The family of this 86-nucleotide RNA sequence from Medicago truncatula is "MIR2617 microRNA precursor family". The family has 3 seed sequences and 1,174 matches in Rfam 15.1. Pairs were carried over by alignment from the consensus structure, which was predicted with RNAalifold.
[Rfam]
RNA sequence: AUGUAGUGUAGCAUGCCCGUUCUGAUGAAUUACUCUGAUAAAUAUUUUAUAUUUAAUUACUUUUGGGUAACGGGGUGUUACACGUG
Numbered sequence: 001a002u003g004u005a006g007u008g009u010a011g012c013a014u015g016c017c018c019g020u021u022c023u024g025a026u027g028a029a030u031u032a033c034u035c036u037g038a039u040a041a042a043u044a045u046u047u048u049a050u051a052u053u054u055a056a057u058u059a060c061u062u063u064u065g066g067g068u069a070a071c072g073g074g075g076u077g078u079u080a081c082a083c084g085u086g
Base pairs, nucleotide, nucleotide: 006083007082008081009080010079011078012077013076014075016074017073018072019071020070021069